[Rfam]
RNA: SAM riboswitch aptamer (S box leader)
RNA sequence: GACUUAUCCAGAAAGACUGAGGGAAGAGGCCCUGUGAAGUCUUAGCAACCUGUUUCUCAAUAAGGUGCUAAAUCCUUCCUGCUUUGCGGGACAGAUAAGAU
Numbered sequence: 001g002a003c004u005u006a007u008c009c010a011g012a013a014a015g016a017c018u019g020a021g022g023g024a025a026g027a028g029g030c031c032c033u034g035u036g037a038a039g040u041c042u043u044a045g046c047a048a049c050c051u052g053u054u055u056c057u058c059a060a061u062a063a064g065g066u067g068c069u070a071a072a073u074c075c076u077u078c079c080u081g082c083u084u085u086g087c088g089g090g091a092c093a094g095a096u097a098a099g100a101u
Stems, first nucleotide, its partner, number of pairs: 001101001003099006013043005021032003026077004044069004049065002051062004073093001078090005